[Rfam]
A member of the RNA family "Small nucleolar RNA snoR53Y" from Musa balbisiana, 78 nucleotides long. On this family, see Brown et al., RNA 2001: "Multiple snoRNA gene clusters from Arabidopsis". Pairs were carried over by alignment from the consensus structure, which was predicted with WAR.
RNA sequence: GUUCCCGAUGAUGCCCAUUUUGACCAUGCUAAUGCUGAAUUACUUUGACGACAAUUUGUUGAAUGUUCUGAGGGAACC
Dot-bracket structure: (((((...................................................................))))).
Numbered sequence: 001g002u003u004c005c006c007g008a009u010g011a012u013g014c015c016c017a018u019u020u021u022g023a024c025c026a027u028g029c030u031a032a033u034g035c036u037g038a039a040u041u042a043c044u045u046u047g048a049c050g051a052c053a054a055u056u057u058g059u060u061g062a063a064u065g066u067u068c069u070g071a072g073g074g075a076a077c078c
Stems, first nucleotide, its partner, number of pairs: 001077005
The family's RNA type in Rfam is C/D-box small nucleolar RNA.